[Rfam]
RNA sequence: CUUGGGGUGCGGAGGUAAUCCCUCAGCCUGGAUUGUGAGAGGGCACAUGCCAAGCCGAGGGACCCCAACAGUGCACG
Dot-bracket structure: ..((.(.((..(.((...((((((.((..((..((((......))))..))..)).)))))))).)..)).).))..